[Rfam]
RNA sequence: CUCUAAUACAUAGUUUCGAGAUUGCACUUUUAACAAAGGUGCACAGUGAAGUAUUAGUAUUAAAGAAACCUAUUCCUUCCUAAUUUAGGUAAAUAUGGAUCAUUAGAUAUGUUGCUGGUAGUUAAAGAUAAUGAAUGUUAAUGUAUCUAA
Numbered sequence: 001c002u003c004u005a006a007u008a009c010a011u012a013g014u015u016u017c018g019a020g021a022u023u024g025c026a027c028u029u030u031u032a033a034c035a036a037a038g039g040u041g042c043a044c045a046g047u048g049a050a051g052u053a054u055u056a057g058u059a060u061u062a063a064a065g066a067a068a069c070c071u072a073u074u075c076c077u078u079c080c081u082a083a084u085u086u087a088g089g090u091a092a093a094u095a096u097g098g099a100u101c102a103u104u105a106g107a108u109a110u111g112u113u114g115c116u117g118g119u120a121g122u123u124a125a126a127g128a129u130a131a132u133g134a135a136u137g138u139u140a141a142u143g144u145a146u147c148u149a150a
Base pairs, nucleotide, nucleotide: 003057004056005055006054007053008052009051014049015048023043024042025041026040027039028038029037030036079089080088081087082086103150104149105148106147107146108145109144110143111142112141114138115137122131123130
RNA: RT-14 RNA